[Rfam]
RNA: T-box leader
Organism: Enterococcus dispar
RNA sequence: AUUUAUACGUUGAAGAGAAGAGUAGCUAAAACGAGCAGUUUCAGAGAGUCCGGCCGGUGGGAAAGGACAUUGCGCAAUUUAGUGAAGAUGAGCUCUGAGUAUUUCAAAUGGUUUACGCUAUUUGAACGAAAAGCAAUCGUUAAUUUGCCGGGUAUCAACAGGUACCGUUGAGAUAUUAUUCGUGAGAAUAAUAUGAAUAAGGGUGGUAACGCGAAAAGUCUUCGUCCCUUUG
Dot-bracket structure: ......((......(((.......((((((......(((........((((.............)))))))......)))))).........)))...))..(((((((..........)))))))(((.......))).................................(((((((........))))))).....((((.......(((((.....)))))))))...